[Rfam]
RNA: 6S / SsrS RNA
RNA sequence: AUCCCCCUACCUGAUUUGCGAAUAUGCGAAAAUAACCCUACAACUUUUUAAAAGGGAGCACGGACUCCAUAUGCGGUGUUGAAGACCUUAUGAUUCAUUAGGGAUCCUAAAGCUGUUGGGAGUGCACCCACCUGUCAUUUUGUAGGCAGGUUAUAUUUAAGCAUUUACGGUCAGGUGGGGUUUUU
Number, nucleotide and partner (000 for none) at each position: 001a000002u000003c000004c000005c180006c179007c178008u177009a176010c175011c174012u173013g172014a171015u170016u000017u169018g168019c000020g000021a000022a000023u000024a000025u000026g000027c000028g000029a000030a000031a000032a154033u153034a152035a151036c000037c146038c145039u000040a000041c000042a000043a000044c000045u000046u000047u000048u000049u000050a000051a000052a000053a000054g129055g128056g127057a000058g125059c124060a123061c122062g000063g000064a000065c119066u000067c000068c118069a117070u000071a000072u000073g113074c112075g000076g000077u000078g000079u000080u000081g106082a105083a000084g000085a000086c102087c101088u100089u000090a098091u000092g000093a000094u000095u000096c000097a000098u090099u000100a088101g087102g086103g000104a000105u082106c081107c000108u000109a000110a000111a000112g074113c073114u000115g000116u000117u069118g068119g065120g000121a000122g061123u060124g059125c058126a000127c056128c055129c054130a000131c000132c000133u000134g000135u000136c000137a000138u000139u000140u000141u000142g000143u000144a000145g038146g037147c000148a000149g000150g000151u035152u034153a033154u032155a000156u000157u000158u000159a000160a000161g000162c000163a000164u000165u000166u000167a000168c018169g017170g015171u014172c013173a012174g011175g010176u009177g008178g007179g006180g005181u000182u000183u000184u000185u000